[Rfam]
RNA sequence: UGAGAACUUGAGUCUGUAGCAGAAGUGCUCACGGCACAGCCAUGUCAAAUUCCAGUGAAUCUGUGUAUUCUACU
Number, nucleotide and partner (000 for none) at each position: 001u000002g000003a000004g000005a000006a000007c000008u000009u000010g000011a000012g041013u000014c039015u038016g000017u000018a074019g073020c000021a071022g070023a069024a068025g037026u036027g035028c000029u000030c000031a000032c000033g000034g000035c027036a026037c025038a015039g014040c000041c012042a000043u000044g000045u000046c063047a062048a000049a060050u059051u058052c057053c000054a000055g000056u000057g052058a051059a050060u049061c000062u047063g046064u000065g000066u000067a000068u024069u023070c022071u021072a000073c019074u018
Notes
Rfam assigns this 74-nucleotide sequence from Crocodylus porosus to the family "Mammalian CPEB3 ribozyme". It scores 42 bits against the family's covariance model. The organism belongs to Crocodylus, within Eukaryota.